mir-21 microRNA precursor family: a 72-nucleotide sequence from Esox lucius. Rfam links the family to the GO terms RISC complex and miRNA-mediated post-transcriptional gene silencing.
[Rfam]
RNA sequence: CGUCAGAUAGCUUAUCAGACUGGUGUUGGCUAUUUAAUCACAUGGCAACAACAUUCUGUAAGCUGUCUGAAG
Numbered sequence: 001c002g003u004c005a006g007a008u009a010g011c012u013u014a015u016c017a018g019a020c021u022g023g024u025g026u027u028g029g030c031u032a033u034u035u036a037a038u039c040a041c042a043u044g045g046c047a048a049c050a051a052c053a054u055u056c057u058g059u060a061a062g063c064u065g066u067c068u069g070a071a072g
Base pairs, nucleotide, nucleotide: 008065009064010063011062012061013060014059015058018056019055021053022052024050025049026048027047028046030044
The literature on the family includes a 2007 paper in Physiol Genomics by Coutinho et al., "Discovery and profiling of bovine microRNAs from immune-related and embryonic tissues". Rfam 15.1 lists 777 matches to the family in 646 species.